[Rfam]
RNA: DUF805b RNA
RNA sequence: ACAGAGUCUGCCGAAAAUCUGACGAUAACAGAGUAGGCA
Numbered sequence: 001a002c003a004g005a006g007u008c009u010g011c012c013g014a015a016a017a018u019c020u021g022a023c024g025a026u027a028a029c030a031g032a033g034u035a036g037g038c039a
Stems, first nucleotide, its partner, number of pairs: 002021004010038003